[Rfam]
RNA: mir-1912 microRNA precursor family
Organism: Phyllostomus discolor
RNA sequence: CUCCAGGAUGUGCUCAUUGCAUGGACUAUGCAUAUUUUUAUUCAAUGCCCAUAGCAUGCAGUGUGAACAUAACAGAG
Numbered sequence: 001c002u003c004c005a006g007g008a009u010g011u012g013c014u015c016a017u018u019g020c021a022u023g024g025a026c027u028a029u030g031c032a033u034a035u036u037u038u039u040a041u042u043c044a045a046u047g048c049c050c051a052u053a054g055c056a057u058g059c060a061g062u063g064u065g066a067a068c069a070u071a072a073c074a075g076a077g
Stems, first nucleotide, its partner, number of pairs: 001077003008070004013065001015063009027051001030048004
Dot-bracket structure: (((....((((.(.(((((((((...(..((((...........))))..)...))))))))).).))))....)))